[Rfam]
Nucleotides: 101
Stems, first nucleotide, its partner, number of pairs: 009043004015036002018033001020031003073094007080086001
Number, partner (000 for none) and nucleotide at each position: 001000a002000u003000c004000c005000g006000u007000u008000g009043g010042u011041g012040g013000c014000a015036a016035a017000a018033c019000u020031u021030c022029c023000c024000a025000u026000u027000c028000a029022g030021g031020g032000c033018g034000g035016u036015u037000g038000a039000a040012u041011c042010a043009c044000g045000c046000a047000c048000a049000u050000a051000a052000g053000u054000a055000u056000c057000g058000a059000u060000a061000c062000g063000a064000a065000a066000g067000u068000g069000c070000a071000a072000a073094a074093a075092c076091c077090c078089g079088c080086u081000c082000u083000a084000a085000a086080a087000a088079g089078c090077g091076g092075g093074u094073u095000u096000u097000u098000u099000u100000a101000u